[Rfam]
Annotation:
Rfam assigns this 173-nucleotide RNA from Bacillus sp. MUM 116 to the family "M-box riboswitch aptamer (ykoK leader)". Taxonomically the source falls in Bacillus (Bacteria, Bacillati, Caryophanales, Bacillaceae). The literature on the family includes a 2011 paper in J Mol Biol by Ramesh et al., "Insights into metalloregulation by M-box riboswitch RNAs via structural analysis of manganese-bound complexes".
RNA sequence: AGAUGUCCUCGUUAGGUGAGGCUCCUAUACGAACACAAGCCACUGCCCGGAAACAUCGAAAGAUGCCAAUGGGUUGAACAGGAAUUGCCGGACUAAGGCUCUUCUUAACGUGGCUAAAGGACGAAGGUUCUUUUACGUCGUAUAGUGCCAAAGCUCGGUUGGGGGGGUUCGUU
Number, nucleotide and partner (000 for none) at each position: 001a000002g000003a000004u000005g169006u000007c167008c166009u165010c164011g160012u000013u096014a000015g155016g154017u153018g000019a000020g149021g148022c147023u000024c000025c145026u144027a143028u142029a141030c140031g139032a138033a000034c000035a000036c000037a000038a000039g114040c113041c112042a111043c110044u000045g074046c073047c072048c071049g070050g000051a000052a000053a000054c065055a064056u063057c062058g000059a000060a000061a000062g057063a056064u055065g054066c000067c000068a000069a000070u049071g048072g047073g046074u045075u000076g000077a000078a000079c000080a000081g105082g104083a103084a102085u000086u000087g099088c098089c097090g000091g000092a000093c000094u000095a000096a013097g089098g088099c087100u000101c000102u084103u083104c082105u081106u000107a000108a000109c000110g043111u042112g041113g040114c039115u000116a133117a132118a131119g130120g129121a000122c000123g000124a000125a000126g000127g000128u000129u120130c119131u118132u117133u116134u000135a000136c000137g000138u032139c031140g030141u029142a028143u027144a026145g025146u000147g022148c021149c020150a000151a000152a000153g017154c016155u015156c000157g000158g000159u000160u011161g000162g000163g000164g010165g009166g008167g007168u000169u005170c000171g000172u000173u000
From the family's description: M-box riboswitch, also know as ykoK leader is described as a metaloregulatory RNA that sense divalent metals and function as a genetic control element of genes related to divalent metal transport in bacteria.